[Rfam]
RNA sequence: AAUCUCGGGUAAUUGCGGUUAGCAUCUGCUAACUGAGGAAAGUCCAUGCUCGCACAAGCUGCGAUGCUUGUAGUGUUCGUGCCUGGUGAAAAAAUAAGCUGGGGCAUUUGCUUUGCAAAUGACGGCAAGUGAACAAGCUAAAGCCUUCGGUCAUGCUUAAGUAGCUUUGAAAAGUGCCACAGAGACGAUCUUAUUAAGAAAUUAAUAAGUUGGAACGCGGUAAACCCCUCGAGCGGGCAACCCAAACUAUGGUAGGGGAGCUUCACAUCUGGAAUUGAACUAAAUGUGGGGGCAGACAUUGUCUGGAGAUAGAUGAUUACCCAAAUUUAAAUUUUCCUGAGAAUUUAUUUUGGACAAAACAUGGCUUAUAGAG
Numbered sequence: 001a002a003u004c005u006c007g008g009g010u011a012a013u014u015g016c017g018g019u020u021a022g023c024a025u026c027u028g029c030u031a032a033c034u035g036a037g038g039a040a041a042g043u044c045c046a047u048g049c050u051c052g053c054a055c056a057a058g059c060u061g062c063g064a065u066g067c068u069u070g071u072a073g074u075g076u077u078c079g080u081g082c083c084u085g086g087u088g089a090a091a092a093a094a095u096a097a098g099c100u101g102g103g104g105c106a107u108u109u110g111c112u113u114u115g116c117a118a119a120u121g122a123c124g125g126c127a128a129g130u131g132a133a134c135a136a137g138c139u140a141a142a143g144c145c146u147u148c149g150g151u152c153a154u155g156c157u158u159a160a161g162u163a164g165c166u167u168u169g170a171a172a173a174g175u176g177c178c179a180c181a182g183a184g185a186c187g188a189u190c191u192u193a194u195u196a197a198g199a200a201a202u203u204a205a206u207a208a209g210u211u212g213g214a215a216c217g218c219g220g221u222a223a224a225c226c227c228c229u230c231g232a233g234c235g236g237g238c239a240a241c242c243c244a245a246a247c248u249a250u251g252g253u254a255g256g257g258g259a260g261c262u263u264c265a266c267a268u269c270u271g272g273a274a275u276u277g278a279a280c281u282a283a284a285u286g287u288g289g290g291g292g293c294a295g296a297c298a299u300u301g302u303c304u305g306g307a308g309a310u311a312g313a314u315g316a317u318u319a320c321c322c323a324a325a326u327u328u329a330a331a332u333u334u335u336c337c338u339g340a341g342a343a344u345u346u347a348u349u350u351u352g353g354a355c356a357a358a359a360c361a362u363g364g365c366u367u368a369u370a371g372a373g
Base pairs, nucleotide, nucleotide: 004373005372006371007369008321009320010319011318012317013316014315016035017034018033019032020031021030040367041366042365044364045363046362047361048360049237050236051235052234053233054071055070056069057068058067059066077232078231079230081228082103083102084101085100086099087098104123105121106120107119108118109117110116124227125226127167128166129165130164135158136157137156138155143151144150174225175224176221177220178219190209191208192207193206194205195204196203197202241257242256243255261291262290263289264288265287266286267285293305294304295303296302297301322352323351324350325349327347329345330344
RNA: Bacterial RNase P class B